Rfam assigns this 68-nucleotide RNA sequence from Mycolicibacterium cosmeticum to the family "ASdes TB sRNA". The match comes from Rfam's covariance-model search (79 bits).

[Rfam]
RNA sequence: AGUUCGAUGGGGUCGAUGGCGCGGGUCACCAACAGAUAGUCGCGCAGCGCGAUGCCGUGCCGGUUCUC
Numbered sequence: 001a002g003u004u005c006g007a008u009g010g011g012g013u014c015g016a017u018g019g020c021g022c023g024g025g026u027c028a029c030c031a032a033c034a035g036a037u038a039g040u041c042g043c044g045c046a047g048c049g050c051g052a053u054g055c056c057g058u059g060c061c062g063g064u065u066c067u068c
Stems, first nucleotide, its partner, number of pairs: 004063003008059002011030003015027003035056001037054002040052005

About this RNA: Lineage of the source: Bacteria > Bacillati > Mycobacteriaceae > Mycobacterium > Mycobacterium (subgen. Mycolicibacterium). It is annotated as a small RNA.